The record is a 124-nucleotide RNA from Elstera cyanobacteriorum, which matches "Molybdenum/Tungsten riboswitch aptamer (Moco RNA motif)" in Rfam.

[Rfam]
RNA sequence: GCUUCCCUAUCGCUCCGAGCUGGAACCGCCUAAGGGACCAUGUCCUAGGGCCUUCCGGCCAGGGCCGGGGGUGGAAACGCCCUGGCCUCCCGCGCUUGGAAAGGAGUUUCCCCUGUGAUCCUGC
Numbered sequence: 001g002c003u004u005c006c007c008u009a010u011c012g013c014u015c016c017g018a019g020c021u022g023g024a025a026c027c028g029c030c031u032a033a034g035g036g037a038c039c040a041u042g043u044c045c046u047a048g049g050g051c052c053u054u055c056c057g058g059c060c061a062g063g064g065c066c067g068g069g070g071g072u073g074g075a076a077a078c079g080c081c082c083u084g085g086c087c088u089c090c091c092g093c094g095c096u097u098g099g100a101a102a103g104g105a106g107u108u109u110c111c112c113c114u115g116u117g118a119u120c121c122u123g124c
Stems, first nucleotide, its partner, number of pairs: 003118002006115001012107005019059007028051003034046004062088006069082005089099002